[Rfam]
RNA sequence: GACAUGUGAUGUUCUUUCUCACGAUGGUCUUCCAAGUCCCACAGGUGAAGGGGCUUUGACGACAGUUGCCAAGUGGCCUUGCUGAUGUCAGUUC
Numbered sequence: 001g002a003c004a005u006g007u008g009a010u011g012u013u014c015u016u017u018c019u020c021a022c023g024a025u026g027g028u029c030u031u032c033c034a035a036g037u038c039c040c041a042c043a044g045g046u047g048a049a050g051g052g053g054c055u056u057u058g059a060c061g062a063c064a065g066u067u068g069c070c071a072a073g074u075g076g077c078c079u080u081g082c083u084g085a086u087g088u089c090a091g092u093u094c
Base pairs, nucleotide, nucleotide: 001089002088003087004086
This 94-nucleotide sequence from Chrysemys picta belongs to the Rfam family "Small nucleolar RNA SNORD35". Lineage of the source: Eukaryota > Bilateria > Amniota > Sauropsida > Chrysemys picta. Rfam links the family to the GO terms nucleolus and RNA processing. The match comes from Rfam's covariance-model search (62 bits). Its Rfam clan is "SNORD35 clan". Rfam's curators write: U35 is a C/D box snoRNA located in intron 6 of ribosomal protein L13A and intron 3 of ribosomal protein S11 in humans and at homologous positions in mouse and chicken ribosomal protein genes. On this family, see Nicoloso et al., J Mol Biol 1996: "Intron-encoded, antisense small nucleolar RNAs: the characterization of nine novel species points to their direct role as guides for the 2'-O-ribose methylation of rRNAs".